The family of this 66-nucleotide sequence from Pantoea sp. Eser is "Salmonella enterica sRNA STnc40". A search with the family's covariance model found it, with a score of 45 bits. Lineage of the source: Bacteria > Pseudomonadati > Gammaproteobacteria > Erwiniaceae > Pantoea.
Nucleotides: 066
Base pairs, nucleotide, nucleotide: 002019003018004017006013007012042064043063044062045061046060047059048058049057050056
Number, partner (000 for none) and nucleotide at each position: 001000g002019c003018a004017g005000u006013g007012u008000c009000a010000c011000g012007g013006c014000c015000g016000c017004c018003u019002g020000g021000c022000c023000u024000g025000a026000g027000a028000c029000u030000a031000a032000c033000c034000g035000c036000u037000g038000a039000u040000g041000a042064a043063a044062a045061a046060g047059g048058a049057g050056c051000c052000u053000g054000c055000g056050g057049c058048u059047c060046c061045u062044u063043u064042u065000u066000u